[Rfam]
RNA sequence: UUUUUUAGGGAAAAUCUGGUCUUCCCACAAGGGAAGGCCAGGGAAUUUCCUG
Numbered sequence: 001u002u003u004u005u006u007a008g009g010g011a012a013a014a015u016c017u018g019g020u021c022u023u024c025c026c027a028c029a030a031g032g033g034a035a036g037g038c039c040a041g042g043g044a045a046u047u048u049c050c051u052g
Stems, first nucleotide, its partner, number of pairs: 009051002012048003015042011

The record is a 52-nucleotide RNA from Lentivirus humimdef1, which matches "HIV Ribosomal frameshift signal" in Rfam. For this family Rfam cites "mRNA stem-loops can pause the ribosome by hindering A-site tRNA binding" (Bao et al., Elife, 2020).